[Rfam]
RNA sequence: AAGAACUAAUAGUUUGAAAAGUCAAAUGAGAGGGUAACGCCUUGAAGGGUUUUCUCUAAUACUCCGAAUGGCGAAAUUUUUAUUAAGAAGGAUAACGUCAUAAGCUCGGUGAAGUCGGCUGAGAUUACACCCUAACGUGUAAUGAUGAGGAAAAGCGAACCAGAGGUGGUCGAGUGUAAGAUAGGUCGGGAGUCUAUAAA
Numbered sequence: 001a002a003g004a005a006c007u008a009a010u011a012g013u014u015u016g017a018a019a020a021g022u023c024a025a026a027u028g029a030g031a032g033g034g035u036a037a038c039g040c041c042u043u044g045a046a047g048g049g050u051u052u053u054c055u056c057u058a059a060u061a062c063u064c065c066g067a068a069u070g071g072c073g074a075a076a077u078u079u080u081u082a083u084u085a086a087g088a089a090g091g092a093u094a095a096c097g098u099c100a101u102a103a104g105c106u107c108g109g110u111g112a113a114g115u116c117g118g119c120u121g122a123g124a125u126u127a128c129a130c131c132c133u134a135a136c137g138u139g140u141a142a143u144g145a146u147g148a149g150g151a152a153a154a155g156c157g158a159a160c161c162a163g164a165g166g167u168g169g170u171c172g173a174g175u176g177u178a179a180g181a182u183a184g185g186u187c188g189g190g191a192g193u194c195u196a197u198a199a200a
Base pairs, nucleotide, nucleotide: 018053019052020051021050022049023048031043032042033041034040054192055191056190057189064109065108066107067106068101069100070099071098072097073096076093077092078091079090080089081088116188117187118186119185120184125179126178127177128176129175130174131150132149133148137146138145156172157171159170160169161168162167
The record is a 200-nucleotide sequence from Clostridium tepidiprofundi, which matches "Group II catalytic intron D1-D4-5" in Rfam. Group II introns are found in rRNA, tRNA and mRNA of organelles in fungi, plants and protists, and also in mRNA in bacteria. Rfam links the family to the GO term Group II intron splicing. A reference for the family is Lehmann and Schmidt (2003), "Group II introns: structure and catalytic versatility of large natural ribozymes", Crit Rev Biochem Mol Biol. The match comes from Rfam's covariance-model search (168 bits). Taxonomically the source falls in Clostridium tepidiprofundi (Bacteria, Bacillota, Clostridia, Clostridiaceae).